[Rfam]
RNA sequence: UCCGUCUCCGGCUUGGGAGAGCCUGCGAGGCGGCACCGCAGAUCCAAGGGCCUCGGGAGGGCCCGCGGGGAUGCCGGUCACCAGGGGAGAUUUCCGAUGGAGAACACGCUUCUCAUCGGCCUAUCGCGACAAAUCACGCUCG
Numbered sequence: 001u002c003c004g005u006c007u008c009c010g011g012c013u014u015g016g017g018a019g020a021g022c023c024u025g026c027g028a029g030g031c032g033g034c035a036c037c038g039c040a041g042a043u044c045c046a047a048g049g050g051c052c053u054c055g056g057g058a059g060g061g062c063c064c065g066c067g068g069g070g071a072u073g074c075c076g077g078u079c080a081c082c083a084g085g086g087g088a089g090a091u092u093u094c095c096g097a098u099g100g101a102g103a104a105c106a107c108g109c110u111u112c113u114c115a116u117c118g119g120c121c122u123a124u125c126g127c128g129a130c131a132a133a134u135c136a137c138g139c140u141c142g
Stems, first nucleotide, its partner, number of pairs: 002033007010023005042072002045070001049063005094119005100114005
Dot-bracket structure: .(((((((.(((((....)))))...)))))))........((.(...(((((.....)))))......))).....................(((((.(((((.....)))))))))).......................

Source information
flg-Rhizobiales RNA: a 142-nucleotide RNA. By type it is a cis-regulatory element. Pairs were carried over by alignment from the consensus structure, which is taken from published work.